[Rfam]
RNA: U7 small nuclear RNA
Organism: Erinaceus europaeus
RNA sequence: CAGUGUUACAGCUCUUUUACAAUUUGUCUAGGAGGUCCUCUAAUCUCUACCGGAAGCACCACC
Numbered sequence: 001c002a003g004u005g006u007u008a009c010a011g012c013u014c015u016u017u018u019a020c021a022a023u024u025u026g027u028c029u030a031g032g033a034g035g036u037c038c039u040c041u042a043a044u045c046u047c048u049a050c051c052g053g054a055a056g057c058a059c060c061a062c063c
Stems, first nucleotide, its partner, number of pairs: 034060003037056001039054003044049001